[Rfam]
RNA: Small nucleolar RNA SNORD66
RNA sequence: CUCCAGGGAUGACCUUUACUUUUGUGCCACGUGUCUGGGCCACUGAUUAUUUUAUGAUGGGAUUGAGGAACUGAGGAG
Numbered sequence: 001c002u003c004c005a006g007g008g009a010u011g012a013c014c015u016u017u018a019c020u021u022u023u024g025u026g027c028c029a030c031g032u033g034u035c036u037g038g039g040c041c042a043c044u045g046a047u048u049a050u051u052u053u054a055u056g057a058u059g060g061g062a063u064u065g066a067g068g069a070a071c072u073g074a075g076g077a078g
Base pairs, nucleotide, nucleotide: 001078002077003076004075